[Rfam]
RNA sequence: GGUAUCGUGAGAUAUGGUCUGAAGGAGAUGCGGAAAAUCGAGAGACCCGCAGGCGCAAGAAUAGACCCUAAUGCAAGAAGUGUGAAGCACGGCGGCGGGAUAAGUUGGCGACUUUUCGAAAAGUGAGGAAGCCCACUAAAAGGCAGAUUCCUAAGAAGUCAGAACGGGAAAAUGUGACUUAUAACGUGAUGGUGCAGGGUAUGCUCUGAAGGAAGAAGUG
Numbered sequence: 001g002g003u004a005u006c007g008u009g010a011g012a013u014a015u016g017g018u019c020u021g022a023a024g025g026a027g028a029u030g031c032g033g034a035a036a037a038u039c040g041a042g043a044g045a046c047c048c049g050c051a052g053g054c055g056c057a058a059g060a061a062u063a064g065a066c067c068c069u070a071a072u073g074c075a076a077g078a079a080g081u082g083u084g085a086a087g088c089a090c091g092g093c094g095g096c097g098g099g100a101u102a103a104g105u106u107g108g109c110g111a112c113u114u115u116u117c118g119a120a121a122a123g124u125g126a127g128g129a130a131g132c133c134c135a136c137u138a139a140a141a142g143g144c145a146g147a148u149u150c151c152u153a154a155g156a157a158g159u160c161a162g163a164a165c166g167g168g169a170a171a172a173u174g175u176g177a178c179u180u181a182u183a184a185c186g187u188g189a190u191g192g193u194g195c196a197g198g199g200u201a202u203g204c205u206c207u208g209a210a211g212g213a214a215g216a217a218g219u220g
Base pairs, nucleotide, nucleotide: 002015003014004013005012006011046220048218054212058207059206060205062203064202065200066199067198068197069196087195088194089193090192095187096186097185100182101181102180103179104178105177106161107160108159109158